[Rfam]
RNA: mir-199 microRNA precursor family
RNA sequence: GUCCUGCCUGCCCAGUGUUCAGACUACCUGUUCAUCAGACUAAAGCUGAACAGUAGUCUGCACAUUGGUUAAGCUGGGUU
Numbered sequence: 001g002u003c004c005u006g007c008c009u010g011c012c013c014a015g016u017g018u019u020c021a022g023a024c025u026a027c028c029u030g031u032u033c034a035u036c037a038g039a040c041u042a043a044a045g046c047u048g049a050a051c052a053g054u055a056g057u058c059u060g061c062a063c064a065u066u067g068g069u070u071a072a073g074c075u076g077g078g079u080u
Stems, first nucleotide, its partner, number of pairs: 012068007020060007028053004033048002